[Rfam]
RNA sequence: GCAGGAGAGGUUCUAGCUUAACCCUCUAUAAAAAACUAAGGAAAC
Numbered sequence: 001g002c003a004g005g006a007g008a009g010g011u012u013c014u015a016g017c018u019u020a021a022c023c024c025u026c027u028a029u030a031a032a033a034a035a036c037u038a039a040g041g042a043a044a045c
Base pairs, nucleotide, nucleotide: 006027007026008025009024010023016037
Notes: This 45-nucleotide RNA from Bacillus sp. SG-1 belongs to the Rfam family "PreQ1 (pre queuosine) riboswitch aptamer". Taxonomically the source falls in Bacillus (Bacteria, Bacillati, Bacilli, Caryophanales). It is one of the family's seed sequences. Pairs were carried over by alignment from the consensus structure. This family is a bacterial riboswitch that binds to the metabolite preQ1, an intermediate in the biosynthesis of the modified nucleoside queuosine from GTP. One example of this riboswitch is located in the leader of the Bacillus subtilis ykvJKLM (queCDEF) operon which encodes four genes necessary for queuosine production. PreQ1 binding to the riboswitch aptamer is thought to induce premature transcription termination within the leader to down-regulate expression of these genes. Its family is annotated with queuosine biosynthetic process in the Gene Ontology. The family has 43 seed sequences and 873 matches in Rfam 15.1.